[Rfam]
RNA sequence: CACGGGCCCCGGGCCCCUCUGGCGGGUGGCCGGUCACCCGUGAUGUCGGGGCCGCCUU
Numbered sequence: 001c002a003c004g005g006g007c008c009c010c011g012g013g014c015c016c017c018u019c020u021g022g023c024g025g026g027u028g029g030c031c032g033g034u035c036a037c038c039c040g041u042g043a044u045g046u047c048g049g050g051g052c053c054g055c056c057u058u
Stems, first nucleotide, its partner, number of pairs: 006052007022041008
The record is a 58-nucleotide RNA sequence from Palleronia pontilimi, which matches "terC RNA" in Rfam. The match comes from Rfam's covariance-model search (58 bits).